[Rfam]
RNA sequence: AUACCUACAGCAGUACCAUUUAAAGAGCUAUGAUCACUUUCACACUGAUAGCUCUGAAAAUGGCGCUGCCGUCUGCAA
Numbered sequence: 001a002u003a004c005c006u007a008c009a010g011c012a013g014u015a016c017c018a019u020u021u022a023a024a025g026a027g028c029u030a031u032g033a034u035c036a037c038u039u040u041c042a043c044a045c046u047g048a049u050a051g052c053u054c055u056g057a058a059a060a061u062g063g064c065g066c067u068g069c070c071g072u073c074u075g076c077a078a
Base pairs, nucleotide, nucleotide: 002077004075007072008071011068012067013066016063017062018061019060020059021058024055025054026053027052028051029050030049031048